Overview: A member of the RNA family "Pestivirus 3' UTR SLIV and SLII bovine viral diarrhea virus (BVDV-1)" from Orthopestivirus bovis, 125 nucleotides long. For this family Rfam cites "Global mapping of miRNA-target interactions in cattle (Bos taurus)" (Scheel et al., Sci Rep, 2017). The family's RNA type in Rfam is small RNA. The sequence is in the family's curated seed alignment.
[Rfam]
RNA sequence: AGCACAUGUACAUAUUGUAAAUAAACUGAUACAUGUAUAUAUUGUAUGUAAAUAUAUUUGAGAUUGAUAGUGAUACAGAGUUGUCUACCUCAAGUUAACACUACACUCAAUGCACACAGCACUUU
Numbered sequence: 001a002g003c004a005c006a007u008g009u010a011c012a013u014a015u016u017g018u019a020a021a022u023a024a025a026c027u028g029a030u031a032c033a034u035g036u037a038u039a040u041a042u043u044g045u046a047u048g049u050a051a052a053u054a055u056a057u058u059u060g061a062g063a064u065u066g067a068u069a070g071u072g073a074u075a076c077a078g079a080g081u082u083g084u085c086u087a088c089c090u091c092a093a094g095u096u097a098a099c100a101c102u103a104c105a106c107u108c109a110a111u112g113c114a115c116a117c118a119g120c121a122c123u124u125u
Stems, first nucleotide, its partner, number of pairs: 002045003006040008058110005065103002068100001070099002081097001083095001085094002